[Rfam]
RNA: tRNA
Organism: Rhizomicrobium palustre
RNA sequence: GGCCCCGUAGCUCAACUGGAUAGAGCAGCUGCCUUCUAAGCCGCAGGUUGCGUGUUCGAGUCACGCCGGGGUCA
Numbered sequence: 001g002g003c004c005c006c007g008u009a010g011c012u013c014a015a016c017u018g019g020a021u022a023g024a025g026c027a028g029c030u031g032c033c034u035u036c037u038a039a040g041c042c043g044c045a046g047g048u049u050g051c052g053u054g055u056u057c058g059a060g061u062c063a064c065g066c067c068g069g070g071g072u073c074a
Base pairs, nucleotide, nucleotide: 001073002072003071004070005069006068007067010026011025012024013023028044029043031041032040050066051065052064053063054062